This 101-nucleotide sequence from Turicibacter sp. HGF1 belongs to the Rfam family "Purine riboswitch aptamer". From the family's description: Riboswitches are metabolite binding domains within certain messenger RNAs that serve as precision sensors for their corresponding targets.
[Rfam]
RNA sequence: GGUGGUUAUCAAGGUUAUUUUCAUAUAUAACGCAAAUAUGGUGCGUAAGUUUCUACCCGAUUUCCGUAAAAAAUCGGACUAUGAGAAGAGAUAGAACAAGG
Numbered sequence: 001g002g003u004g005g006u007u008a009u010c011a012a013g014g015u016u017a018u019u020u021u022c023a024u025a026u027a028u029a030a031c032g033c034a035a036a037u038a039u040g041g042u043g044c045g046u047a048a049g050u051u052u053c054u055a056c057c058c059g060a061u062u063u064c065c066g067u068a069a070a071a072a073a074u075c076g077g078a079c080u081a082u083g084a085g086a087a088g089a090g091a092u093a094g095a096a097c098a099a100g101g
Stems, first nucleotide, its partner, number of pairs: 018087008028048001030046005057077007